[Rfam]
RNA sequence: AGGGAAUAGUAGAAUCAUUGUAGAAGCGUUCACGGCGACCCCUGUCAGGCUUUGAACAAAGCCUGAACAUUUUGCU
Numbered sequence: 001a002g003g004g005a006a007u008a009g010u011a012g013a014a015u016c017a018u019u020g021u022a023g024a025a026g027c028g029u030u031c032a033c034g035g036c037g038a039c040c041c042c043u044g045u046c047a048g049g050c051u052u053u054g055a056a057c058a059a060a061g062c063c064u065g066a067a068c069a070u071u072u073u074g075c076u
Base pairs, nucleotide, nucleotide: 012041015038016037020075021074022073023072024071025070026036027035046065047064048063049062050061051060052059
RNA: Mammalian CPEB3 ribozyme